[Rfam]
This 196-nucleotide RNA sequence from Allobogoriella caseilytica belongs to the Rfam family "Actinobacteria sRNA Ms_IGR-5". The match comes from Rfam's covariance-model search (86 bits). It is annotated as a small RNA. Pairs were carried over by alignment from the consensus structure.

RNA sequence: ACACAGGAAGGGAGGUGGUCCAGAAGUGAUUUCUCUUCGGACGCGUGAGGUGGCUACCCGCUAGCCCGUCAAUGGACGGACCGCACGGUUCUUCUUCUGAUGGGAGCGAGAACCAGGUGGUCACCGGAGCCCGCGGGGCCGUGGACCCGUCCGCCACGGAAGCCGGCCAAGACCGGCACCCCGCGGGCUCUUCCAU
Numbered sequence: 001a002c003a004c005a006g007g008a009a010g011g012g013a014g015g016u017g018g019u020c021c022a023g024a025a026g027u028g029a030u031u032u033c034u035c036u037u038c039g040g041a042c043g044c045g046u047g048a049g050g051u052g053g054c055u056a057c058c059c060g061c062u063a064g065c066c067c068g069u070c071a072a073u074g075g076a077c078g079g080a081c082c083g084c085a086c087g088g089u090u091c092u093u094c095u096u097c098u099g100a101u102g103g104g105a106g107c108g109a110g111a112a113c114c115a116g117g118u119g120g121u122c123a124c125c126g127g128a129g130c131c132c133g134c135g136g137g138g139c140c141g142u143g144g145a146c147c148c149g150u151c152c153g154c155c156a157c158g159g160a161a162g163c164c165g166g167c168c169a170a171g172a173c174c175g176g177c178a179c180c181c182c183g184c185g186g187g188c189u190c191u192u193c194c195a196u
Stems, first nucleotide, its partner, number of pairs: 014058006059108004065103002068101004074095002127190012140158005